[Rfam]
RNA: R2 RNA element
Organism: Agrilus planipennis
RNA sequence: ACAUAAUAUAAUAACCACAAUCACAUAAUACACAAACACGUACGGCUGAUGAGGACCUUAAUUGGUCCUAGAACGGCCUGAGGUAGAGGGGUUUUAGUCAGUAGGUCCGAGGACUUCUUCCUCGGGAAUCUGACACUACCCAGUCGUACGGACGGCUGGGUGUCUUUUGAAGGUUUCCCCUCUUCUACGAAA
Numbered sequence: 001a002c003a004u005a006a007u008a009u010a011a012u013a014a015c016c017a018c019a020a021u022c023a024c025a026u027a028a029u030a031c032a033c034a035a036a037c038a039c040g041u042a043c044g045g046c047u048g049a050u051g052a053g054g055a056c057c058u059u060a061a062u063u064g065g066u067c068c069u070a071g072a073a074c075g076g077c078c079u080g081a082g083g084u085a086g087a088g089g090g091g092u093u094u095u096a097g098u099c100a101g102u103a104g105g106u107c108c109g110a111g112g113a114c115u116u117c118u119u120c121c122u123c124g125g126g127a128a129u130c131u132g133a134c135a136c137u138a139c140c141c142a143g144u145c146g147u148a149c150g151g152a153c154g155g156c157u158g159g160g161u162g163u164c165u166u167u168u169g170a171a172g173g174u175u176u177c178c179c180c181u182c183u184u185c186u187a188c189g190a191a192a
Base pairs, nucleotide, nucleotide: 062191063190065188066187082186083185085183086182088179089178090177097134098133099132100131101130106126107125108124109123110122111121112120113119136162138161139160140159141158142157